[Rfam]
RNA: DUF2800 RNA
RNA sequence: CCGUUAUUGCCGCACGGAUUGAUCCCCGUGACCCAACGGCAAUGACGGACAACAGAAUAAAUCAGCUGCCUAGUGGGUAGGUCGGCUGCAAUCCGAAACGGAGAUUAUUCUCCUGGGACUGCGGUGCUUUUGUUGUGCCCUUUUGCAGCUGUGAC
Numbered sequence: 001c002c003g004u005u006a007u008u009g010c011c012g013c014a015c016g017g018a019u020u021g022a023u024c025c026c027c028g029u030g031a032c033c034c035a036a037c038g039g040c041a042a043u044g045a046c047g048g049a050c051a052a053c054a055g056a057a058u059a060a061a062u063c064a065g066c067u068g069c070c071u072a073g074u075g076g077g078u079a080g081g082u083c084g085g086c087u088g089c090a091a092u093c094c095g096a097a098a099c100g101g102a103g104a105u106u107a108u109u110c111u112c113c114u115g116g117g118a119c120u121g122c123g124g125u126g127c128u129u130u131u132g133u134u135g136u137g138c139c140c141u142u143u144u145g146c147a148g149c150u151g152u153g154a155c
Base pairs, nucleotide, nucleotide: 001048002047003046004045005044006043007042008041009040010039011038012037013030014029015028016027017026031078032077033076034075035074063151064150065149066148067147068146069145085125086124087123088122089121100113101112102111103110104109